[Rfam]
RNA sequence: UGGGCUAGUGAUGACGACUGGUAGCAGAUAAGUUUAUAUAAUGAAUAAUAUAUGUCCUGAUACUGAGGUCCAA
Number, nucleotide and partner (000 for none) at each position: 001u000002g071003g070004g069005c068006u067007a000008g000009u000010g000011a000012u000013g000014a000015c000016g000017a000018c000019u000020g000021g000022u000023a000024g000025c000026a000027g000028a000029u000030a000031a000032g000033u000034u000035u000036a000037u000038a000039u000040a000041a000042u000043g000044a000045a000046u000047a000048a000049u000050a000051u000052a000053u000054g000055u000056c000057c000058u000059g000060a000061u000062a000063c000064u000065g000066a000067g006068g005069u004070c003071c002072a000073a000
RNA: Small nucleolar RNA SNORD113/SNORD114 family